[Rfam]
RNA: glmS glucosamine-6-phosphate activated ribozyme aptamer
RNA sequence: GAUUAAUGGAUAGCGCCAGCCCUUCACAUGAGAAGGGGACGAGGAGCGGGUUUAUCGAAUUUUCGGCGGAUGACCCGGGGCCGUGCAGUCCACAAGAGAGAGCAUAAAACUGGGGAUGCAAAUCCCAGGACAGAGGCUCUGUCUAAGCACCUA
Numbered sequence: 001g002a003u004u005a006a007u008g009g010a011u012a013g014c015g016c017c018a019g020c021c022c023u024u025c026a027c028a029u030g031a032g033a034a035g036g037g038g039a040c041g042a043g044g045a046g047c048g049g050g051u052u053u054a055u056c057g058a059a060u061u062u063u064c065g066g067c068g069g070a071u072g073a074c075c076c077g078g079g080g081c082c083g084u085g086c087a088g089u090c091c092a093c094a095a096g097a098g099a100g101a102g103c104a105u106a107a108a109a110c111u112g113g114g115g116a117u118g119c120a121a122a123u124c125c126c127a128g129g130a131c132a133g134a135g136g137c138u139c140u141g142u143c144u145a146a147g148c149a150c151c152u153a
Base pairs, nucleotide, nucleotide: 020037021036022035023034024033025032047077048076049075050074051073055066056065057064058063078091079090080089081088096143097142099140100139101138102137110128111127112126113125115124116123117122